[Rfam]
RNA sequence: GCCUGGCCUACUGUGUUCUUCAGUCAGUAGUUUACACAGCCAGACACCAUGCAAGAGUAAGGUCUUCCUUUAAGAUGGCCGAUAUGCUGUAUUUUAUGGUAUGUCAUCAUUAAAAGUGAGUACAAGU
Numbered sequence: 001g002c003c004u005g006g007c008c009u010a011c012u013g014u015g016u017u018c019u020u021c022a023g024u025c026a027g028u029a030g031u032u033u034a035c036a037c038a039g040c041c042a043g044a045c046a047c048c049a050u051g052c053a054a055g056a057g058u059a060a061g062g063u064c065u066u067c068c069u070u071u072a073a074g075a076u077g078g079c080c081g082a083u084a085u086g087c088u089g090u091a092u093u094u095u096a097u098g099g100u101a102u103g104u105c106a107u108c109a110u111u112a113a114a115a116g117u118g119a120g121u122a123c124a125a126g127u
Stems, first nucleotide, its partner, number of pairs: 001052002004049003011039006065120003068116004073111002081105009
The family of this 127-nucleotide RNA from Rattus norvegicus is "Small nucleolar RNA SNORA15". The family's consensus secondary structure was predicted with RNAfold. By type it is an H/ACA-box small nucleolar RNA. Lineage of the source: Eukaryota > Opisthokonta > Eumetazoa > Glires > Rattus. Rfam describes the family as follows. ACA15 is a member of the H/ACA class of snoRNA that guide the sites of modification of uridines to pseudouridines. Rfam links the family to the GO terms RNA processing and nucleolus. It scores 98 bits against the family's covariance model.